[Rfam]
RNA sequence: AAAGUUUGACAGACAAUCGCCGGCAGCUUUAAGACUGCGGGAGGAAAGUCCGGGCUCCAUAGGGCAGGAUGCUGGAUAACGUCCAGUCAGCGCGAGCUGAAGGAUAGUGCCACAGAAACGGACCGCCGAUGGCCUGUACGCGUACAGGCACAGGCAAGGGUGGAACCGUGGUGUAAGAGACCACGAGCGGUACUGGUGACAGUACGGCUGGUAAACCCCAUCUGGAGCAAGACCUAAGAGAACACAGCGGCUUCGCGCCGCGGCUUUGGCACCGAAGCGUGUUCGGGUUGGUCGCUUGAAUUUUUCAGCAAUGGAAAAUCUAGAUAGAUGAUUGUCGCCUAACAGUGGGAGGGUCGUUCCCGUUCGGACCACUUCAGGUACAGAACCCGGCUUACGGCAAACUUUCCGU
Numbered sequence: 001a002a003a004g005u006u007u008g009a010c011a012g013a014c015a016a017u018c019g020c021c022g023g024c025a026g027c028u029u030u031a032a033g034a035c036u037g038c039g040g041g042a043g044g045a046a047a048g049u050c051c052g053g054g055c056u057c058c059a060u061a062g063g064g065c066a067g068g069a070u071g072c073u074g075g076a077u078a079a080c081g082u083c084c085a086g087u088c089a090g091c092g093c094g095a096g097c098u099g100a101a102g103g104a105u106a107g108u109g110c111c112a113c114a115g116a117a118a119c120g121g122a123c124c125g126c127c128g129a130u131g132g133c134c135u136g137u138a139c140g141c142g143u144a145c146a147g148g149c150a151c152a153g154g155c156a157a158g159g160g161u162g163g164a165a166c167c168g169u170g171g172u173g174u175a176a177g178a179g180a181c182c183a184c185g186a187g188c189g190g191u192a193c194u195g196g197u198g199a200c201a202g203u204a205c206g207g208c209u210g211g212u213a214a215a216c217c218c219c220a221u222c223u224g225g226a227g228c229a230a231g232a233c234c235u236a237a238g239a240g241a242a243c244a245c246a247g248c249g250g251c252u253u254c255g256c257g258c259c260g261c262g263g264c265u266u267u268g269g270c271a272c273c274g275a276a277g278c279g280u281g282u283u284c285g286g287g288u289u290g291g292u293c294g295c296u297u298g299a300a301u302u303u304u305u306c307a308g309c310a311a312u313g314g315a316a317a318a319u320c321u322a323g324a325u326a327g328a329u330g331a332u333u334g335u336c337g338c339c340u341a342a343c344a345g346u347g348g349g350a351g352g353g354u355c356g357u358u359c360c361c362g363u364u365c366g367g368a369c370c371a372c373u374u375c376a377g378g379u380a381c382a383g384a385a386c387c388c389g390g391c392u393u394a395c396g397g398c399a400a401a402c403u404u405u406c407c408g409u
Stems, first nucleotide, its partner, number of pairs: 001405008010396001012336007020041002023038004028033001046393003050390005055227004062272001064270002067223005072086005087101001088099004102218002107216002109212003123159002125155003130150002133147001167185006187208001188206001190205006231293004240284006265275002300319008
Bacterial RNase P class A: a 409-nucleotide RNA sequence from Paenibacillus roseus. The family's consensus secondary structure is taken from published work.